A member of the RNA family "Bacterial RNase P class A" from Neokomagataea tanensis, 401 nucleotides long. Its family is annotated with ribonuclease P activity, dimeric ribonuclease P complex and tRNA processing in the Gene Ontology.
[Rfam]
RNA sequence: CCAGACGGCUGGACGAUCGCUGGCGCAGGGAUGAGGAUCUUUGCGCGGGAGGAAAGUCCGGGCUCCAUGGGACAACGGUACCGGCUAACAGCCGGCGGGGGCGACCCUAGGGAAAGUGCCACAGAAAACAGACCGCCCGCCGGAGUGUCCCUUAAGGGUCACUUGCGGGUAAGGGCGAAACGGUGCGGUAAGAGCGCACCGCGAGGCCGGCAACGGUCUUGGACACGGUAAACCCUACCGGGAGCAAAACCGAAUAGGAACAACCGGCCAUCUCGGUGGCCAGGGGCUGUCUCACCCUGUUGUUCGGGUUGGUUGCGCGAGGCCUGCAGUAAUGUAGGUCCCAGAGGAAUGAUCGUCCCGCUUUGAGCGGACAGAACCCGGCUUACAGGCCGUCUGGCUCC
Numbered sequence: 001c002c003a004g005a006c007g008g009c010u011g012g013a014c015g016a017u018c019g020c021u022g023g024c025g026c027a028g029g030g031a032u033g034a035g036g037a038u039c040u041u042u043g044c045g046c047g048g049g050a051g052g053a054a055a056g057u058c059c060g061g062g063c064u065c066c067a068u069g070g071g072a073c074a075a076c077g078g079u080a081c082c083g084g085c086u087a088a089c090a091g092c093c094g095g096c097g098g099g100g101g102c103g104a105c106c107c108u109a110g111g112g113a114a115a116g117u118g119c120c121a122c123a124g125a126a127a128a129c130a131g132a133c134c135g136c137c138c139g140c141c142g143g144a145g146u147g148u149c150c151c152u153u154a155a156g157g158g159u160c161a162c163u164u165g166c167g168g169g170u171a172a173g174g175g176c177g178a179a180a181c182g183g184u185g186c187g188g189u190a191a192g193a194g195c196g197c198a199c200c201g202c203g204a205g206g207c208c209g210g211c212a213a214c215g216g217u218c219u220u221g222g223a224c225a226c227g228g229u230a231a232a233c234c235c236u237a238c239c240g241g242g243a244g245c246a247a248a249a250c251c252g253a254a255u256a257g258g259a260a261c262a263a264c265c266g267g268c269c270a271u272c273u274c275g276g277u278g279g280c281c282a283g284g285g286g287c288u289g290u291c292u293c294a295c296c297c298u299g300u301u302g303u304u305c306g307g308g309u310u311g312g313u314u315g316c317g318c319g320a321g322g323c324c325u326g327c328a329g330u331a332a333u334g335u336a337g338g339u340c341c342c343a344g345a346g347g348a349a350u351g352a353u354c355g356u357c358c359c360g361c362u363u364u365g366a367g368c369g370g371a372c373a374g375a376a377c378c379c380g381g382c383u384u385a386c387a388g389g390c391c392g393u394c395u396g397g398c399u400c401c
Stems, first nucleotide, its partner, number of pairs: 001397010011386001012357007020049002023046009054384003058381005063244004071293002074290001076240005081095005096110001097108004111235002116233002118229003133174002135170006142163002182200006201224001202221008248314004258305006284298003288294001321340008

Description: The match comes from Rfam's covariance-model search (310 bits).